[Rfam]
RNA: c-di-GMP-II-GAG riboswitch aptamer
Nucleotides: 085
Stems, first nucleotide, its partner, number of pairs: 001085002005081007014059002023053005029047001038072002041067004
Number, partner (000 for none) and nucleotide at each position: 001085g002084c003000a004000c005081g006080u007079a008078c009077g010076g011075g012000g013000a014059g015058c016000c017000u018000a019000g020000a021000c022000a023053c024052g025051c026050g027049g028000g029047c030000c031000a032000a033000a034000u035000a036000c037000c038072g039071g040000c041067c042066g043065c044064c045000g046000c047029g048000a049027c050026c051025g052024c053023g054000c055000c056000g057000a058015g059014c060000c061000a062000c063000u064044g065043g066042c067041g068000a069000g070000a071039c072038c073000g074000a075011c076010c077009c078008g079007u080006g081005c082000a083000a084002g085001u